[Rfam]
RNA: Purine riboswitch aptamer
Nucleotides: 102
Stems, first nucleotide, its partner, number of pairs: 019087007029049007058078007
Number, partner (000 for none) and nucleotide at each position: 001000c002000g003000g004000a005000a006000a007000c008000a009000a010000a011000a012000g013000g014000g015000g016000a017000a018000a019087g020086u021085u022084c023083g024082u025081a026000u027000a028000u029049u030048c031047c032046u033045g034044a035043g036000a037000a038000u039000a040000u041000g042000g043035c044034u045033c046032a047031g048030g049029a050000g051000u052000c053000u054000c055000u056000a057000c058078u059077a060076g061075g062074u063073c064072a065000c066000c067000a068000g069000a070000a071000a072064u073063g074062a075061u076060c077059u078058g079000a080000c081025u082024a083023c084022g085021a086020a087019c088000g089000g090000a091000a092000c093000g094000u095000u096000a097000u098000g099000a100000u101000a102000u